[Rfam]
RNA sequence: UAGACGGAAAUUUUUCCGUCUAGGAUGAGUAUUCUAGACGGAAAUUUCCGUCUAGAAUAUUCCGUCUAUGAUGUAUUCUAGACGGAAUUUCCGCCUAGAAUACUACAUCCUAGACGAAAACUU
Numbered sequence: 001u002a003g004a005c006g007g008a009a010a011u012u013u014u015u016c017c018g019u020c021u022a023g024g025a026u027g028a029g030u031a032u033u034c035u036a037g038a039c040g041g042a043a044a045u046u047u048c049c050g051u052c053u054a055g056a057a058u059a060u061u062c063c064g065u066c067u068a069u070g071a072u073g074u075a076u077u078c079u080a081g082a083c084g085g086a087a088u089u090u091c092c093g094c095c096u097a098g099a100a101u102a103c104u105a106c107a108u109c110c111u112a113g114a115c116g117a118a119a120a121c122u123u
Stems, first nucleotide, its partner, number of pairs: 003052005012043001016041011064115005070109005075101001077099005083093003

Shown here is a 123-nucleotide sequence from Asparagus officinalis, a member of the family "Nematode snoRNA ceN39". NCBI's taxonomy places the organism under Eukaryota, Tracheophyta, Spermatophyta, Asparagaceae, Asparagus. Rfam 15.1 lists 95 matches to the family in 44 species. The match comes from Rfam's covariance-model search (39 bits). Pairs were carried over by alignment from the consensus structure, which was predicted with RNAalifold. By type it is an H/ACA-box small nucleolar RNA.